[Rfam]
Rfam assigns this 64-nucleotide RNA sequence to the family "Small nucleolar RNA SNORD98". By type it is a C/D-box small nucleolar RNA. For this family Rfam cites "Purified box C/D snoRNPs are able to reproduce site-specific 2'-O-methylation of target RNA in vitro" (Galardi et al., Mol Cell Biol, 2002). Pairs were carried over by alignment from the consensus structure.
RNA sequence: GAGUGAUGAUGUUUUAAACCUAUUCCAUUUCUGAAAUAGUCUGUGGAAAAAAAUAACUGAACUC
Numbered sequence: 001g002a003g004u005g006a007u008g009a010u011g012u013u014u015u016a017a018a019c020c021u022a023u024u025c026c027a028u029u030u031c032u033g034a035a036a037u038a039g040u041c042u043g044u045g046g047a048a049a050a051a052a053a054u055a056a057c058u059g060a061a062c063u064c
Base pairs, nucleotide, nucleotide: 001064002063003062004061